[Rfam]
RNA: Bacterial RNase P class A
Organism: Ereboglobus luteus
RNA sequence: CUUUGGAGCCAGAUCGUCGCUCCGAGUUCUUUGAUCUCAGAGAGGAAAGUCCGGACACCACAGGGCAGGACUCCCGGCAAGAAAAGUUGUCGCGCCGACCCGGUGCGCGCCGCCGCAAGGCUGCGCCCGCGCCGAUCGGACACGCCUCCGCUCAAGCCGGGGCAACACGGGCCACAUCCCGCGUUGACGGACAGUGUCACAGAAAACAAGUAGCCGCGCGCCAAGUCGAAAGACCGCGCGCGCGGUCAUAGUGAAAAGGUGGUGUAAGAGACCACCGCGCCCCGCCGCAAGGCGGGCGGCACGAAAAACCCAAUCCGGUGCAAGGCAAAAUAGGCGGCUGGACGGCCCGUCCCACAGUCGCGGGUAUGCCGCAUCGCGUCGCAAGACGCGGAAGUCGCGCAAGCGGCUUAGAGAAAUGACGGUCAUGGCGCAAAUCUUCGGACGCGCGCCUUACAUAAUCCGGCUUACCGGCUCCAAAGCUAA
Numbered sequence: 001c002u003u004u005g006g007a008g009c010c011a012g013a014u015c016g017u018c019g020c021u022c023c024g025a026g027u028u029c030u031u032u033g034a035u036c037u038c039a040g041a042g043a044g045g046a047a048a049g050u051c052c053g054g055a056c057a058c059c060a061c062a063g064g065g066c067a068g069g070a071c072u073c074c075c076g077g078c079a080a081g082a083a084a085a086g087u088u089g090u091c092g093c094g095c096c097g098a099c100c101c102g103g104u105g106c107g108c109g110c111c112g113c114c115g116c117a118a119g120g121c122u123g124c125g126c127c128c129g130c131g132c133c134g135a136u137c138g139g140a141c142a143c144g145c146c147u148c149c150g151c152u153c154a155a156g157c158c159g160g161g162g163c164a165a166c167a168c169g170g171g172c173c174a175c176a177u178c179c180c181g182c183g184u185u186g187a188c189g190g191a192c193a194g195u196g197u198c199a200c201a202g203a204a205a206a207c208a209a210g211u212a213g214c215c216g217c218g219c220g221c222c223a224a225g226u227c228g229a230a231a232g233a234c235c236g237c238g239c240g241c242g243c244g245g246u247c248a249u250a251g252u253g254a255a256a257a258g259g260u261g262g263u264g265u266a267a268g269a270g271a272c273c274a275c276c277g278c279g280c281c282c283c284g285c286c287g288c289a290a291g292g293c294g295g296g297c298g299g300c301a302c303g304a305a306a307a308a309c310c311c312a313a314u315c316c317g318g319u320g321c322a323a324g325g326c327a328a329a330a331u332a333g334g335c336g337g338c339u340g341g342a343c344g345g346c347c348c349g350u351c352c353c354a355c356a357g358u359c360g361c362g363g364g365u366a367u368g369c370c371g372c373a374u375c376g377c378g379u380c381g382c383a384a385g386a387c388g389c390g391g392a393a394g395u396c397g398c399g400c401a402a403g404c405g406g407c408u409u410a411g412a413g414a415a416a417u418g419a420c421g422g423u424c425a426u427g428g429c430g431c432a433a434a435u436c437u438u439c440g441g442a443c444g445c446g447c448g449c450c451u452u453a454c455a456u457a458a459u460c461c462g463g464c465u466u467a468c469c470g471g472c473u474c475c476a477a478a479g480c481u482a483a
Stems, first nucleotide, its partner, number of pairs: 001479010012424007020042003024038003028034001047466003051463005056320004063348004068316003072312001073161005162188001163186004189311002194309002197304002211250002213246009258276006277300001278298004283294004324370004334361006340352004378407005